[Rfam]
RNA sequence: GCAUGGACGAAUUCUGCACUAGCUUUUCUUGGUAGCUAAUGCAGUCAGACACUAUGCCAGAAUAAAUUCCUUUUUCACACUGGUUGGCCCGCUUGUUGUAUGAGAAUGGGCAUGCCCUUGGAAGUGGGAUACAU
Numbered sequence: 001g002c003a004u005g006g007a008c009g010a011a012u013u014c015u016g017c018a019c020u021a022g023c024u025u026u027u028c029u030u031g032g033u034a035g036c037u038a039a040u041g042c043a044g045u046c047a048g049a050c051a052c053u054a055u056g057c058c059a060g061a062a063u064a065a066a067u068u069c070c071u072u073u074u075u076c077a078c079a080c081u082g083g084u085u086g087g088c089c090c091g092c093u094u095g096u097u098g099u100a101u102g103a104g105a106a107u108g109g110g111c112a113u114g115c116c117c118u119u120g121g122a123a124g125u126g127g128g129a130u131a132c133a134u
Stems, first nucleotide, its partner, number of pairs: 001057006014044005070127002073124004083119001086116003091111004

The family of this 134-nucleotide sequence from Pampusana beccarii is "Small nucleolar RNA SNORA15". From the family's description: ACA15 is a member of the H/ACA class of snoRNA that guide the sites of modification of uridines to pseudouridines. Rfam classes the family as an H/ACA-box small nucleolar RNA.